[Rfam]
Nucleotides: 321
Base pairs, nucleotide, nucleotide: 048256049255050254051253052252054250059178060177061176062175063174064173069169070168071167179236180235184231185230186229187228192224193223194222240300242299243298244297245296246295258286259285260284261283262282263281264280265279266278306319307318308317309316310315
Number, partner (000 for none) and nucleotide at each position: 001000g002000a003000a004000a005000a006000c007000g008000u009000u010000u011000g012000c013000u014000a015000g016000u017000g018000g019000u020000c021000a022000a023000g024000u025000u026000g027000g028000g029000u030000a031000u032000u033000c034000u035000g036000a037000u038000u039000u040000g041000a042000c043000u044000g045000c046000g047000a048256c049255a050254c051253u052252g053000u054250c055000a056000a057000a058000u059178u060177g061176c062175g063174g064173g065000g066000a067000a068000g069169c070168c071167c072000u073000a074000a075000a076000g077000c078000c079000u080000u081000a082000u083000u084000c085000a086000c087000c088000a089000a090000g091000c092000a093000a094000u095000u096000g097000u098000g099000g100000a101000a102000a103000c104000a105000c106000u107000c108000u109000u110000g111000u112000g113000g114000c115000c116000a117000g118000g119000u120000u121000a122000a123000u124000a125000g126000c127000c128000u129000c130000g131000g132000g133000u134000a135000u136000g137000g138000u139000a140000a141000c142000a143000g144000u145000a146000g147000u148000a149000a150000g151000g152000a153000u154000a155000a156000a157000u158000g159000u160000g161000a162000a163000a164000a165000a166000u167071g168070g169069g170000u171000u172000a173064u174063c175062c176061g177060c178059a179236g180235c181000c182000a183000a184231a185230u186229c187228c188000u189000a190000a191000g192224g193223g194222g195000a196000a197000a198000a199000a200000g201000a202000a203000u204000u205000a206000c207000a208000a209000a210000u211000c212000c213000g214000u215000a216000u217000u218000u219000u220000c221000a222194u223193c224192c225000u226000a227000u228187g229186g230185a231184u232000g233000c234000a235180g236179u237000u238000c239000a240300a241000c242299g243298a244297c245296u246295a247000g248000a249000c250054g251000g252052c253051a254050g255049u256048g257000g258286g259285u260284a261283c262282u263281g264280c265279u266278c267000u268000u269000u270000u271000u272000a273000c274000u275000c276000u277000u278266g279265a280264g281263u282262a283261g284260u285259g286258c287000u288000u289000a290000a291000g292000g293000u294000a295246u296245a297244g298243u299242c300240u301000g302000u303000c304000c305000u306319u307318u308317u309316c310315u311000g312000a313000a314000a315310a316309g317308a318307g319306a320000g321000g

Group I catalytic intron: a 321-nucleotide RNA from Pneumocystis jirovecii. Gene Ontology term of the family: Group I intron splicing. Pairs were carried over by alignment from the consensus structure, which is taken from published work. The organism belongs to Pneumocystis jirovecii, within Eukaryota. For this family Rfam cites "Self-splicing of group I introns" (Cech, Annu Rev Biochem, 1990). Group I catalytic introns are large self-splicing ribozymes. They catalyse their own excision from mRNA, tRNA and rRNA precursors in a wide range of organisms. The core secondary structure consists of 9 paired regions (P1-P9).